[Rfam]
RNA sequence: GCCGCACGACAGGGGCGUCCCGGUUUUCCGGGGCUGAGAAGCACCCUUUGAACCUGAACCAGAUCAUGCUGGCGGAGGAAGUCGCGGUUUCAGCCCU
Numbered sequence: 001g002c003c004g005c006a007c008g009a010c011a012g013g014g015g016c017g018u019c020c021c022g023g024u025u026u027u028c029c030g031g032g033g034c035u036g037a038g039a040a041g042c043a044c045c046c047u048u049u050g051a052a053c054c055u056g057a058a059c060c061a062g063a064u065c066a067u068g069c070u071g072g073c074g075g076a077g078g079a080a081g082u083c084g085c086g087g088u089u090u091c092a093g094c095c096c097u
Stems, first nucleotide, its partner, number of pairs: 007084004011047004016041001017034005053078003059072004